[Rfam]
Nucleotides: 047
Base pairs, nucleotide, nucleotide: 001020002019003018005016006015007014008013035046036045037044038043
Number, partner (000 for none) and nucleotide at each position: 001020g002019g003018c004000a005016c006015a007014g008013g009000a010000c011000g012000a013008c014007c015006u016005g017000c018003g019002c020001u021000g022000g023000u024000g025000a026000u027000c028000u029000c030000c031000a032000u033000c034000a035046c036045g037044g038043g039000a040000c041000g042000g043038c044037c045036c046035g047000c
Rfam assigns this 47-nucleotide sequence from Comamonas kerstersii to the family "Guanidine-II riboswitch aptamer (mini-ykkC)". A reference for the family is Weinberg et al. (2007), "Identification of 22 candidate structured RNAs in bacteria using the CMfinder comparative genomics pipeline", Nucleic Acids Res. Rfam's curators write: Simpler in structure and has fewer highly conserved nucleotide positions than the ykkC-yxkD leader.